[Rfam]
RNA: Arthropod 7SK RNA
RNA sequence: GGAAGUGUAUUCUGUGAUUGUUCUGUGCAUCGAUCGAUAGAUAGAUAGUCAUCUGUUUAUCAGAUCUGCUCAGUGCCGACCCUCCGUCACACCUUUGUUUCCCAGUAAUUCUGCCUGGCAUUGCUGUGGCAACAUUGUUCUGGAUUGGCUUUCCCGCUGCCUUUGCUAGCGACGACGGGUCGUUAGCAACAGACGCACGGUCAUGCGCUGGUCCUCCACCACCCACUCCGCCUCGCGGACUCCAGUCAUCUCCACGACUGGAGCACGCAUAGGAUGGGGCUCGGGCGGUGGUGCCGGUGCCGAAGCCAACAACAGUUGCCCACGUCAGCCAUUUUCAAAAUUUCUUGGUUAAGUAACUUUGUAGCUUAGCUUCGGAUUUUCGUAAUAUAUUUGCUGUUCAGAACACUUCCAUGUACGCGGCAUUGCCGAGCAAUUUGCCCAUUCUUUUG
Number, nucleotide and partner (000 for none) at each position: 001g410002g409003a408004a407005g406006u405007g404008u403009a000010u000011u000012c000013u000014g090015u089016g088017a087018u086019u000020g000021u000022u000023c073024u072025g071026u000027g069028c068029a067030u000031c000032g066033a065034u064035c063036g061037a060038u059039a058040g000041a000042u055043a054044g053045a052046u000047a000048g000049u000050c000051a000052u045053c044054u043055g042056u000057u000058u039059a038060u037061c036062a000063g035064a034065u033066c032067u029068g028069c027070u000071c025072a024073g023074u000075g000076c000077c000078g000079a000080c000081c000082c000083u000084c000085c000086g018087u017088c016089a015090c014091a000092c000093c000094u000095u000096u000097g000098u000099u000100u000101c000102c000103c000104a000105g000106u000107a000108a000109u000110u000111c000112u000113g000114c000115c000116u000117g000118g000119c000120a000121u000122u000123g000124c000125u000126g000127u000128g000129g000130c000131a000132a000133c000134a000135u000136u000137g000138u000139u000140c000141u000142g000143g000144a000145u000146u000147g000148g000149c000150u000151u000152u000153c000154c000155c000156g000157c000158u000159g000160c000161c000162u000163u000164u000165g000166c000167u000168a000169g000170c000171g000172a000173c000174g000175a000176c000177g000178g000179g000180u000181c000182g000183u000184u000185a000186g000187c000188a000189a000190c000191a000192g000193a000194c000195g000196c000197a000198c000199g000200g000201u000202c000203a000204u000205g000206c000207g000208c000209u000210g000211g000212u000213c000214c000215u000216c000217c000218a000219c000220c000221a000222c000223c000224c000225a000226c000227u000228c000229c000230g000231c000232c000233u000234c000235g000236c000237g000238g000239a000240c000241u000242c000243c000244a000245g000246u000247c000248a000249u000250c000251u000252c000253c000254a000255c000256g000257a000258c000259u000260g000261g000262a000263g000264c000265a000266c000267g000268c000269a000270u000271a000272g000273g000274a000275u000276g000277g000278g000279g000280c000281u000282c000283g000284g000285g000286c000287g000288g000289u000290g000291g000292u000293g000294c000295c000296g000297g000298u000299g000300c000301c000302g000303a000304a000305g000306c000307c000308a000309a000310c000311a000312a000313c000314a000315g000316u000317u000318g000319c000320c000321c000322a000323c000324g000325u000326c000327a000328g000329c000330c000331a000332u000333u000334u000335u000336c000337a000338a000339a000340a000341u000342u000343u000344c000345u000346u000347g000348g000349u000350u000351a000352a000353g000354u000355a000356a000357c000358u000359u000360u000361g000362u000363a000364g000365c000366u000367u000368a000369g000370c000371u000372u000373c000374g000375g000376a000377u000378u000379u000380u000381c000382g000383u000384a000385a000386u000387a000388u000389a000390u000391u000392u000393g000394c000395u000396g000397u000398u000399c000400a000401g000402a000403a008404c007405a006406c005407u004408u003409c002410c001411a000412u000413g000414u000415a000416c000417g000418c000419g439420g438421c437422a434423u433424u432425g431426c430427c000428g000429a000430g426431c425432a424433a423434u422435u000436u000437g421438c420439c419440c000441a000442u000443u000444c000445u000446u000447u000448u000449g000